[Rfam]
The family of this 51-nucleotide RNA sequence from Shewanella sp. SNU WT4 is "L31-Gammaproteobacteria ribosomal protein leader". Taxonomically the source falls in Shewanella (Bacteria, Pseudomonadota, Gammaproteobacteria, Shewanellaceae). Its Rfam clan is "Ribosomal Protein L31 Leader clan". It is annotated as a cis-regulatory leader. For this family Rfam cites "Discovery of 20 novel ribosomal leader candidates in bacteria and archaea" (Eckert and Weinberg, BMC Microbiol, 2020). The base pairs follow the family's consensus structure, which is taken from published work.

RNA sequence: CAUGUGGUACCCAACUUAGGGUUGGGAGAGCGACAUGGCCUUAUUUGAGGU
Numbered sequence: 001c002a003u004g005u006g007g008u009a010c011c012c013a014a015c016u017u018a019g020g021g022u023u024g025g026g027a028g029a030g031c032g033a034c035a036u037g038g039c040c041u042u043a044u045u046u047g048a049g050g051u
Stems, first nucleotide, its partner, number of pairs: 001037005007031002010026006